[Rfam]
A member of the RNA family "Betaproteobacteria-1 RNA" from Paraburkholderia tropica, 123 nucleotides long.
RNA sequence: CGUUAGCGCGGACGAGGAGUGACCGGUGGCGCGCUAGGGAAAUCCGUACCACGGGGAUGGGUCCUGAGAGAGCGGACGCGCUGGCGAAGCUAGAGGCGCGGGACCCGAAAUAGUCUGGCGGAG
Dot-bracket structure: (.((((((((..................[)))))))).)....((((.(]..........{{{{.....).)))).((((((......[[[[[[))))))}}}}.........]]]]]]....
The source organism's lineage runs through Bacteria, Pseudomonadati, Betaproteobacteria, Burkholderiaceae and Paraburkholderia. It scores 70 bits against the family's covariance model. The base pairs follow the family's consensus structure, which is taken from published work.